[Rfam]
RNA sequence: CCGAUUGACGACGACGAGCUGCUCACCUACAUCCUCACCGGCCUCGACAUCGAGUUCAAUCCCGUUGUCACGUUUCUCCUUGCACGUACUGAUCCUGUCUCCAUAAGUGAAGCAUAUUCUCAACUCCUUGCGUUUGAAA
Numbered sequence: 001c002c003g004a005u006u007g008a009c010g011a012c013g014a015c016g017a018g019c020u021g022c023u024c025a026c027c028u029a030c031a032u033c034c035u036c037a038c039c040g041g042c043c044u045c046g047a048c049a050u051c052g053a054g055u056u057c058a059a060u061c062c063c064g065u066u067g068u069c070a071c072g073u074u075u076c077u078c079c080u081u082g083c084a085c086g087u088a089c090u091g092a093u094c095c096u097g098u099c100u101c102c103a104u105a106a107g108u109g110a111a112g113c114a115u116a117u118u119c120u121c122a123a124c125u126c127c128u129u130g131c132g133u134u135u136g137a138a139a
Stems, first nucleotide, its partner, number of pairs: 005137004088108003092104002

About this RNA: Rfam assigns this 139-nucleotide RNA from Digitaria exilis to the family "Small nucleolar RNA Z247". It scores 63 bits against the family's covariance model. Rfam classes the family as a C/D-box small nucleolar RNA. Lineage of the source: Eukaryota > Spermatophyta > Poales > Anthephorinae > Digitaria. The base pairs follow the family's consensus structure, which was predicted with PFOLD.